Shown here is a 350-nucleotide RNA sequence from bacterium HR12, a member of the family "transfer-messenger RNA".
Nucleotides: 350
Stems, first nucleotide, its partner, number of pairs: 001346007020319009033309002036306006046294005051070005058083005064077001112133003116130003120126001134170006140162006149182006186216009199232006235269003240264005247259003250286007323339005
Number, partner (000 for none) and nucleotide at each position: 001346g002345g003344g004343g005342g006341u007340g008000c009000a010000c011000c012000g013000g014000u015000u016000u017000c018000g019000a020319c021318c022317u023316g024315g025314g026313c027312g028311g029000g030000u031000a032000c033309c034308g035000c036306g037305c038304a039303g040302g041301g042000g043000a044000a045000g046294c047293g048292g049291g050290c051070c052069g053068a054067c055066g056000u057000c058083g059082c060081c061080a062079c063000a064077u065000g066055c067054g068053u069052c070051g071000u072000g073000a074000a075000a076000c077064a078000g079062g080061u081060g082059g083058c084000a085000a086000c087000c088000a089000a090000c091000a092000a093000g094000c095000g096000c097000c098000a099000a100000c101000a102000c103000u104000g105000a106000g107000u108000u109000c110000g111000c112133g113132c114131u115000c116130g117129c118128u119000g120126c121000c122000u123000a124000a125000c126120g127000a128118g129117g130116c131114a132113g133112c134170c135169g136168u137167c138166c139165g140162c141161c142160g143159c144158g145157g146000c147000a148000g149182g150181c151180c152179u153178g154177c155000g156000a157145c158144c159143g160142c161141g162140g163000a164000u165139c166138g167137g168136g169135c170134g171000u172000c173000g174000u175000g176000a177154g178153c179152a180151g181150g182149c183000u184000c185000a186216c187215g188214g189213c190212g191211g192210c193209g194208g195000c196000u197000c198000c199232g200231c201230c202229c203228g204227g205000g206000g207000g208194c209193c210192g211191u212190c213189g214188c215187c216186g217000g218000a219000c220000a221000c222000c223000g224000a225000a226000c227204c228203c229202g230201g231200g232199c233000u234000g235269g236268c237267c238000g239000a240264g241263a242262g243261g244260u245000g246000c247259u248258c249257c250286g251285c252284c253283g254282g255281c256280g257249g258248g259247a260244g261243c262242c263241u264240c265000g266000a267237g268236g269235c270000g271000a272000g273000a274000u275000c276000g277000c278000a279000c280256c281255g282254c283253c284252g285251g286250c287000u288000g289000c290050g291049c292048c293047c294046g295000g296000a297000g298000a299000a300000g301041c302040c303039c304038u305037g306036c307000c308034c309033g310000g311028u312027c313026g314025u315024c316023c317022g318021g319020g320000g321000a322000c323339g324338g325337g326336g327335g328000u329000u330000c331000g332000a333000c334000u335327c336326c337325c338324c339323c340007c341006a342005c343004c344003u345002c346001c347000a348000c349000u350000u
The match comes from Rfam's covariance-model search (107 bits). The family's consensus secondary structure is taken from published work. The family's RNA type in Rfam is non-coding RNA gene.